A member of the RNA family "Ribosomal protein L20 leader" from Bacillus sp. FJAT-18017, 133 nucleotides long. Rfam describes the family as follows. This family is a putative r-protein leader autoregulatory structure found in B. subtilis and other low-GC Gram-positive bacteria. It is located in the 5' untranslated regions of mRNAs encoding initiation factor 3 followed by ribosomal proteins L35 and L20 (infC-rpmI-rplT). A Rho-independent transcription terminator structure that is probably involved in regulation is included at the 3' end. Pairs were carried over by alignment from the consensus structure, which was predicted with CMfinder. A reference for the family is Zengel and Lindahl (1994), "Diverse mechanisms for regulating ribosomal protein synthesis in Escherichia coli", Prog Nucleic Acid Res Mol Biol. Taxonomically the source falls in Bacillus (Bacteria, Bacillota, Bacilli, Caryophanales).

[Rfam]
RNA sequence: GUUGGGAAGAAGAAGCACCCGCUUCUCACCUAGCUGACGCACUCGGCUGUUGGCAGGUUUUACGUUAUGGUUUGGUUCAAACCUUAUUUAUGUACGUAAGUGUGGGUGUAUACAUCCGCACUUUUUUUAUUGU
Numbered sequence: 001g002u003u004g005g006g007a008a009g010a011a012g013a014a015g016c017a018c019c020c021g022c023u024u025c026u027c028a029c030c031u032a033g034c035u036g037a038c039g040c041a042c043u044c045g046g047c048u049g050u051u052g053g054c055a056g057g058u059u060u061u062a063c064g065u066u067a068u069g070g071u072u073u074g075g076u077u078c079a080a081a082c083c084u085u086a087u088u089u090a091u092g093u094a095c096g097u098a099a100g101u102g103u104g105g106g107u108g109u110a111u112a113c114a115u116c117c118g119c120a121c122u123u124u125u126u127u128u129a130u131u132g133u
Stems, first nucleotide, its partner, number of pairs: 011026006028058003036051003039047002101120008